Bacterial large signal recognition particle RNA: a 265-nucleotide sequence from Desulfocucumis palustris. Rfam's curators write: The signal recognition particle (SRP) is a universally conserved ribonucleoprotein involved in the co-translational targeting of proteins to membranes.
[Rfam]
RNA sequence: CCGUGCUAGAUGGGGAGGUAGCGGUGCCCUGAACCCGCAAACCGCUAUAGCGGGAUUGAAUUCCUGCCCCAGGGUUUAGCUUGUGGGGUCCGGCCCCUGUAAGGGGUGUUGACGGUUGGGUCUUGCGCGACGGGGGCUCCUGAACCGUGUCAGGUCCUGACGGAAGCAGCACUAAGGGAACACCUCCGGGUGCCGCGAGGUUGCCUGACCCGAGCUACCUGCAGGGGUAACGCCCGGAAGUUAUUAUUCAAAGGCAGGUGCACGG
Numbered sequence: 001c002c003g004u005g006c007u008a009g010a011u012g013g014g015g016a017g018g019u020a021g022c023g024g025u026g027c028c029c030u031g032a033a034c035c036c037g038c039a040a041a042c043c044g045c046u047a048u049a050g051c052g053g054g055a056u057u058g059a060a061u062u063c064c065u066g067c068c069c070c071a072g073g074g075u076u077u078a079g080c081u082u083g084u085g086g087g088g089u090c091c092g093g094c095c096c097c098u099g100u101a102a103g104g105g106g107u108g109u110u111g112a113c114g115g116u117u118g119g120g121u122c123u124u125g126c127g128c129g130a131c132g133g134g135g136g137c138u139c140c141u142g143a144a145c146c147g148u149g150u151c152a153g154g155u156c157c158u159g160a161c162g163g164a165a166g167c168a169g170c171a172c173u174a175a176g177g178g179a180a181c182a183c184c185u186c187c188g189g190g191u192g193c194c195g196c197g198a199g200g201u202u203g204c205c206u207g208a209c210c211c212g213a214g215c216u217a218c219c220u221g222c223a224g225g226g227g228u229a230a231c232g233c234c235c236g237g238a239a240g241u242u243a244u245u246a247u248u249c250a251a252a253g254g255c256a257g258g259u260g261c262a263c264g265g
Stems, first nucleotide, its partner, number of pairs: 001265006009057003012030004017025001019023001034054005063258006072249004078242005084236004091232002095226006103219002105216003114210008122199006128190001131188005136181001138179004147172004155164003
The source organism's lineage runs through Bacteria, Bacillati, Clostridia, Desulfocucumaceae and Desulfocucumis. For this family Rfam cites "SRPDB: Signal Recognition Particle Database" (Rosenblad et al., Nucleic Acids Res, 2003). Rfam classes the family as a non-coding RNA gene.